[Rfam]
RNA sequence: AUACACACUGAGUGGCCAGAUUAUUAUAAUCUCUGAACGUGUAAUAAUCUGGCCACUCAGUAUGUGU
Numbered sequence: 001a002u003a004c005a006c007a008c009u010g011a012g013u014g015g016c017c018a019g020a021u022u023a024u025u026a027u028a029a030u031c032u033c034u035g036a037a038c039g040u041g042u043a044a045u046a047a048u049c050u051g052g053c054c055a056c057u058c059a060g061u062a063u064g065u066g067u
Stems, first nucleotide, its partner, number of pairs: 004064002007061011019049010
Description:
This 67-nucleotide RNA from Pipistrellus kuhlii belongs to the Rfam family "mir-9256 microRNA precursor family". A search with the family's covariance model found it, with a score of 82 bits. Pairs were carried over by alignment from the consensus structure, which was predicted with RNAalifold.